[Rfam]
RNA: 6S / SsrS RNA
RNA sequence: AAUACCCUGCUCUGUUCGUGAUGAGCCUUUUUAAACCCACAUUGUUUAUAAGGGAUUCCGAACUCUUUCGGUGAAUUGCAGGCCUCCCGAAACGCUAUACGCGUUCUUGGAUGUUGGAAGCAGCGCAGCCGGAAGGAGGAAACCCACCUGCCGAGUCGUGCAGGUUAUAAAUGGGCUUACACGGCAUGGCGGGGUGUUU
Numbered sequence: 001a002a003u004a005c006c007c008u009g010c011u012c013u014g015u016u017c018g019u020g021a022u023g024a025g026c027c028u029u030u031u032u033a034a035a036c037c038c039a040c041a042u043u044g045u046u047u048a049u050a051a052g053g054g055a056u057u058c059c060g061a062a063c064u065c066u067u068u069c070g071g072u073g074a075a076u077u078g079c080a081g082g083c084c085u086c087c088c089g090a091a092a093c094g095c096u097a098u099a100c101g102c103g104u105u106c107u108u109g110g111a112u113g114u115u116g117g118a119a120g121c122a123g124c125g126c127a128g129c130c131g132g133a134a135g136g137a138g139g140a141a142a143c144c145c146a147c148c149u150g151c152c153g154a155g156u157c158g159u160g161c162a163g164g165u166u167a168u169a170a171a172u173g174g175g176c177u178u179a180c181a182c183g184g185c186a187u188g189g190c191g192g193g194g195u196g197u198u199u
Stems, first nucleotide, its partner, number of pairs: 002197010013186003017183003034166004052145003056141004063135001066134007078121002083117002087113001